Shown here is a 113-nucleotide RNA from Sparganium stoloniferum, a member of the family "Plastid-psbA-1 3UTR RNA". It is annotated as a cis-regulatory element. For this family Rfam cites "Retrograde signaling in plants: A critical review focusing on the GUN pathway and beyond" (Richter et al., Plant Commun, 2023). Plastid psbA-1 is a non-coding RNA (ncRNA) present in plastids. It was identified in inverted repeat sequences in the 3 prime untranslate region (3UTR) of photosystem II quinone-binding protein (psbA). The family's consensus secondary structure was predicted with LocARNA. Its Rfam clan is "Plastid-psbA 3UTR RNA clan". The source organism's lineage runs through Eukaryota, Viridiplantae, Spermatophyta, Liliopsida and Sparganium. It is one of the family's seed sequences.
[Rfam]
RNA sequence: GUUGAAGUUCCAUCUAUCAAUGGAUAAUACAAUACUUCUGUCUUAAUGUAGAUGAAUUGCUGAAAGAAACAAAAAAUACCCAAUAUCUUGUUUUAACAAGAUAUUGGGUAUUU
Numbered sequence: 001g002u003u004g005a006a007g008u009u010c011c012a013u014c015u016a017u018c019a020a021u022g023g024a025u026a027a028u029a030c031a032a033u034a035c036u037u038c039u040g041u042c043u044u045a046a047u048g049u050a051g052a053u054g055a056a057u058u059g060c061u062g063a064a065a066g067a068a069a070c071a072a073a074a075a076a077u078a079c080c081c082a083a084u085a086u087c088u089u090g091u092u093u094u095a096a097c098a099a100g101a102u103a104u105u106g107g108g109u110a111u112u113u
Base pairs, nucleotide, nucleotide: 009024010023011022012021013020074113075112076111077110078109079108081106082105083104085102086101087100088099089098